Shown here is an 88-nucleotide RNA sequence from Eragrostis curvula, a member of the family "MIR2275 microRNA precursor family". Rfam 15.1 lists 785 matches to the family in 111 species. The match comes from Rfam's covariance-model search (82 bits). Rfam links the family to the GO terms RISC complex and miRNA-mediated post-transcriptional gene silencing. The organism belongs to Eragrostis, within Eukaryota.
RNA sequence: CUGUUGAAUUUGAGAAUUGGAUGGAGCCAAAUCUUGUCACGAAAGUGAUACAAAGAUUUGGUUUCCUCCAAUAUCUCAUGUUCAAAUG
Numbered sequence: 001c002u003g004u005u006g007a008a009u010u011u012g013a014g015a016a017u018u019g020g021a022u023g024g025a026g027c028c029a030a031a032u033c034u035u036g037u038c039a040c041g042a043a044a045g046u047g048a049u050a051c052a053a054a055g056a057u058u059u060g061g062u063u064u065c066c067u068c069c070a071a072u073a074u075c076u077c078a079u080g081u082u083c084a085a086a087u088g
Stems, first nucleotide, its partner, number of pairs: 004085005011078004016072006023065008032056002